[Rfam]
RNA sequence: GAAAUCGAUGGGGAUGGAGUCCCCCGAUAACCGCCGCAAGGCUGAUGACUCCUACCGGGCG
Number, nucleotide and partner (000 for none) at each position: 001g000002a000003a000004a000005u000006c000007g000008a000009u000010g025011g024012g023013g022014a000015u000016g052017g051018a050019g049020u048021c047022c013023c012024c011025c010026g000027a000028u000029a000030a000031c000032c000033g042034c041035c040036g000037c000038a000039a000040g035041g034042c033043u000044g000045a000046u000047g021048a020049c019050u018051c017052c016053u000054a000055c000056c000057g000058g000059g000060c000061g000
RNA: Fluoride riboswitch aptamer (crcB RNA motif)